Shown here is a 73-nucleotide sequence from Trypanosoma conorhini, a member of the family "Trypanosomatid snoRNA TB11Cs3H1". Lineage of the source: Eukaryota > Euglenozoa > Kinetoplastea > Trypanosomatidae > Trypanosoma. The match comes from Rfam's covariance-model search (81 bits). The literature on the family includes a 2005 paper in RNA by Liang et al., "A genome-wide analysis of C/D and H/ACA-like small nucleolar RNAs in Trypanosoma brucei reveals a trypanosome-specific pattern of rRNA modification".
[Rfam]
RNA sequence: UAGGCCCUCAUUGAACAAUCCCACCGGUGAGUGUAUCUCCUUGAUCUCCUGCGUGGACCUGAGAGCGCCCAGA
Numbered sequence: 001u002a003g004g005c006c007c008u009c010a011u012u013g014a015a016c017a018a019u020c021c022c023a024c025c026g027g028u029g030a031g032u033g034u035a036u037c038u039c040c041u042u043g044a045u046c047u048c049c050u051g052c053g054u055g056g057a058c059c060u061g062a063g064a065g066c067g068c069c070c071a072g073a
Stems, first nucleotide, its partner, number of pairs: 003069003007065003021056004025051002029042003033038001